[Rfam]
RNA sequence: ACGCUUGGGCUGCCGAAUCCGCUGCCGAGCGGAACGGGGGACCCGACAUUGUGGGGUGAAUUCCCGCCACGGCGGGAUAGGUGACUUUCUCCACCGAACCCGGCAGCUAACCCCGUAGGCGUGAGAGAGGCGGCCG
Numbered sequence: 001a002c003g004c005u006u007g008g009g010c011u012g013c014c015g016a017a018u019c020c021g022c023u024g025c026c027g028a029g030c031g032g033a034a035c036g037g038g039g040g041a042c043c044c045g046a047c048a049u050u051g052u053g054g055g056g057u058g059a060a061u062u063c064c065c066g067c068c069a070c071g072g073c074g075g076g077a078u079a080g081g082u083g084a085c086u087u088u089c090u091c092c093a094c095c096g097a098a099c100c101c102g103g104c105a106g107c108u109a110a111c112c113c114c115g116u117a118g119g120c121g122u123g124a125g126a127g128a129g130g131c132g133g134c135c136g
Stems, first nucleotide, its partner, number of pairs: 011121004018033006034116006044053002054101003062077004080095004
Background: c-di-AMP riboswitch aptamer (ydaO/yuaA leader): a 136-nucleotide sequence from bacterium HR29. A search with the family's covariance model found it, with a score of 89 bits. Its family is annotated with regulation of gene expression and cyclic-di-AMP binding in the Gene Ontology.